[Rfam]
RNA sequence: UCGGUUCCGGUUCACGCCGUCAACUGCCCGAACGACUCGGCAGCGGCGACCCGGGGCC
Numbered sequence: 001u002c003g004g005u006u007c008c009g010g011u012u013c014a015c016g017c018c019g020u021c022a023a024c025u026g027c028c029c030g031a032a033c034g035a036c037u038c039g040g041c042a043g044c045g046g047c048g049a050c051c052c053g054g055g056g057c058c
Stems, first nucleotide, its partner, number of pairs: 003058003007054004015048005
Rfam assigns this 58-nucleotide RNA sequence from Mycolicibacterium hassiacum to the family "L31-Actinobacteria ribosomal protein leader". On this family, see Eckert and Weinberg, BMC Microbiol 2020: "Discovery of 20 novel ribosomal leader candidates in bacteria and archaea". Its Rfam clan is "Ribosomal Protein L31 Leader clan". The source organism's lineage runs through Bacteria, Bacillati, Mycobacteriales, Mycobacterium (subgen. Mycolicibacterium) and Mycolicibacterium hassiacum. Rfam's curators put it in the seed alignment.